[Rfam]
RNA sequence: UACACCGCAGGCGGUUGAAAUACCGCUACCAGUGGAAAUUACGCCGUAAAAGGCAUGGUUUAGUAAGCGAAAGCCCAGGAACCAUGAGGCAAUAAGA
Number, nucleotide and partner (000 for none) at each position: 001u000002a000003c034004a033005c032006c000007g000008c000009a000010g027011g026012c025013g024014g023015u022016u000017g000018a000019a000020a000021u000022a015023c014024c013025g012026c011027u010028a000029c000030c000031a000032g005033u004034g003035g000036a000037a000038a000039u000040u000041a000042c000043g090044c089045c088046g000047u000048a000049a000050a000051a000052g000053g000054c086055a085056u084057g083058g082059u081060u000061u000062a000063g000064u078065a000066a000067g074068c073069g000070a000071a000072a000073g068074c067075c000076c000077a000078g064079g000080a000081a059082c058083c057084a056085u055086g054087a000088g045089g044090c043091a000092a000093u000094a000095a000096g000097a000
Shown here is a 97-nucleotide sequence, a member of the family "RT-4 RNA".